[Rfam]
RNA sequence: UGCUCAGUGACUAUAGCCAAUUACAUUGUCAAUAUACGCUACGCUGGCCUUGUUUUGAUGAAAAGUUGGAUAUGAGAGCU
Numbered sequence: 001u002g003c004u005c006a007g008u009g010a011c012u013a014u015a016g017c018c019a020a021u022u023a024c025a026u027u028g029u030c031a032a033u034a035u036a037c038g039c040u041a042c043g044c045u046g047g048c049c050u051u052g053u054u055u056u057g058a059u060g061a062a063a064a065g066u067u068g069g070a071u072a073u074g075a076g077a078g079c080u
Base pairs, nucleotide, nucleotide: 002079003078004077005076
The record is an 80-nucleotide RNA sequence from Triticum urartu, which matches "Small nucleolar RNA U54" in Rfam. Taxonomically the source falls in Triticum (Eukaryota, Magnoliopsida, Mesangiospermae, Triticeae). The base pairs follow the family's consensus structure, which was predicted with PFOLD. Rfam links the family to the GO terms nucleolus and RNA processing. A search with the family's covariance model found it, with a score of 61 bits. By type it is a C/D-box small nucleolar RNA. Its Rfam clan is "U54 clan". Rfam's curators write: U54 is a C/D box small nucleolar RNA, which acts as a methylation guide for 18S ribosomal RNA in plants.